The record is a 114-nucleotide RNA sequence from Phytohabitans houttuyneae, which matches "ZMP/ZTP riboswitch aptamer (pfl RNA motif)" in Rfam.

[Rfam]
RNA sequence: CGGGGUACUCGCGACUGGCGUAUUGGGGCCUGUUUCAGAGGUUCACAGGACCCAGGUGGAAGGAACCACCGGGGAGCGACCACGAUCGCGGCACCGUGCGCCUGGGUGCCGGUC
Dot-bracket structure: ....((..((((..(([[[[[..................................((((......))))..))..))))..)).......(((((..]]]]]..))))).....
The base pairs follow the family's consensus structure, which is taken from published work. The match comes from Rfam's covariance-model search (48 bits). NCBI's taxonomy places the organism under Bacteria, Bacillati, Actinomycetota, Micromonosporales, Phytohabitans.